[Rfam]
RNA sequence: ACCAGAAAAAGGCAAACUUAUUGAAAAGUAAGGACGCAAAGCUACAGAUCUAAGGUGGUAAUCACUAGGAUGGCUGAGCUGCCUGA
Numbered sequence: 001a002c003c004a005g006a007a008a009a010a011g012g013c014a015a016a017c018u019u020a021u022u023g024a025a026a027a028g029u030a031a032g033g034a035c036g037c038a039a040a041g042c043u044a045c046a047g048a049u050c051u052a053a054g055g056u057g058g059u060a061a062u063c064a065c066u067a068g069g070a071u072g073g074c075u076g077a078g079c080u081g082c083c084u085g086a
Stems, first nucleotide, its partner, number of pairs: 012037002017032006040080004045076003048071003055065004
RNA: c-di-GMP-I riboswitch aptamer
Organism: Falsibacillus albus